[Rfam]
RNA sequence: AGCCUUCUGUAUCCGUACUGAGAUUUCGUCACACACCAGACCACAAGGGCUGAUGAGACUUCCGAGAUAAGUGAAGCG
Numbered sequence: 001a002g003c004c005u006u007c008u009g010u011a012u013c014c015g016u017a018c019u020g021a022g023a024u025u026u027c028g029u030c031a032c033a034c035a036c037c038a039g040a041c042c043a044c045a046a047g048g049g050c051u052g053a054u055g056a057g058a059c060u061u062c063c064g065a066g067a068u069a070a071g072u073g074a075a076g077c078g
Base pairs, nucleotide, nucleotide: 002077003076005074006073008071010069011068012067013066016064020061021060022059024058025057026056027055028054029053030052
RNA: mir-3492 microRNA precursor family
Organism: Schistosoma bovis